[Rfam]
RNA sequence: CCGCCCGGAGGUCAACAUCCGCCAGCGAGUUUCGCCCGCGGAUGCGAUCUCG
Numbered sequence: 001c002c003g004c005c006c007g008g009a010g011g012u013c014a015a016c017a018u019c020c021g022c023c024a025g026c027g028a029g030u031u032u033c034g035c036c037c038g039c040g041g042a043u044g045c046g047a048u049c050u051c052g
Stems, first nucleotide, its partner, number of pairs: 016044007025035004